About this RNA: The record is a 191-nucleotide sequence from Ascoidea rubescens, which matches "Small nucleolar RNA snR34" in Rfam. Rfam classes the family as an H/ACA-box small nucleolar RNA. The base pairs follow the family's consensus structure, which was predicted with WAR. The organism belongs to Ascoidea rubescens, within Eukaryota. A search with the family's covariance model found it, with a score of 42 bits. The family is grouped with related families in Rfam's "SNORA65 clan". Gene Ontology terms of the family: nucleolus and RNA processing.
RNA sequence: AAUCAAAAAGUUUAUUAUGGAAGUAUUUGCCACGAUGAUAUAACGUAAUCUCCAAGUUAUUUCAUUGCCAUAUCUAAAAGAUACUAUUUCUCACUUCCCAGAUCAAUACAGUCCUGGAUAGGAAGUUUGUGCUUCGUUGUGUUCUAUUAGAUUAGAGCGAUGAAUUCAAAUGUCGAUGAAAGGAAACAUUA
Numbered sequence: 001a002a003u004c005a006a007a008a009a010g011u012u013u014a015u016u017a018u019g020g021a022a023g024u025a026u027u028u029g030c031c032a033c034g035a036u037g038a039u040a041u042a043a044c045g046u047a048a049u050c051u052c053c054a055a056g057u058u059a060u061u062u063c064a065u066u067g068c069c070a071u072a073u074c075u076a077a078a079a080g081a082u083a084c085u086a087u088u089u090c091u092c093a094c095u096u097c098c099c100a101g102a103u104c105a106a107u108a109c110a111g112u113c114c115u116g117g118a119u120a121g122g123a124a125g126u127u128u129g130u131g132c133u134u135c136g137u138u139g140u141g142u143u144c145u146a147u148u149a150g151a152u153u154a155g156a157g158c159g160a161u162g163a164a165u166u167c168a169a170a171u172g173u174c175g176a177u178g179a180a181a182g183g184a185a186a187c188a189u190u191a
Stems, first nucleotide, its partner, number of pairs: 018076004034066005040060003048057002107180001112179002125171004131166001133164004140159007